[Rfam]
RNA sequence: CUCGGCCUUGAUUGUCCAAACGCAAUUCUUGUGGAGGUGACAUCAAGAACUGUGUAUGGACAUCUAUGCCUGG
Numbered sequence: 001c002u003c004g005g006c007c008u009u010g011a012u013u014g015u016c017c018a019a020a021c022g023c024a025a026u027u028c029u030u031g032u033g034g035a036g037g038u039g040a041c042a043u044c045a046a047g048a049a050c051u052g053u054g055u056a057u058g059g060a061c062a063u064c065u066a067u068g069c070c071u072g073g
Stems, first nucleotide, its partner, number of pairs: 002072001004070003010064003014061005021054004026049006
Background: The family of this 73-nucleotide RNA sequence from Portunus trituberculatus is "mir-219 microRNA precursor family". Gene Ontology terms of the family: miRNA-mediated post-transcriptional gene silencing and RISC complex. On this family, see Lim et al., Science 2003: "Vertebrate microRNA genes". It scores 68 bits against the family's covariance model. Taxonomically the source falls in Portunus (Eukaryota, Malacostraca, Eumalacostraca, Decapoda).